Background: Shown here is a 152-nucleotide sequence from Rothia kristinae, a member of the family "c-di-AMP riboswitch aptamer (ydaO/yuaA leader)". Gene Ontology terms of the family: cyclic-di-AMP binding and regulation of gene expression. About the family: This family represents a conserved RNA structure found upstream of the ydaO and yuaA genes in Bacillus subtilis and related genes in other bacteria. The base pairs follow the family's consensus structure.
[Rfam]
RNA sequence: CGAGAACGAACACUGACUUCGGCAGAGGCGGGGGACCCAAUCACGGGUUCUUCCCACGCGGAAGAGCCCUCGGGGUUAAGUCGUCCAUCCGGACGGCCGGGUGACUCCCAUCCGAACCCGACAGCUCACCUCGCAGGCACCAGGGAGGAAGA
Dot-bracket structure: (.....(.................)..((((((....(.................................)(((.....((((........))))..((((.......))))...))).........)))))).)................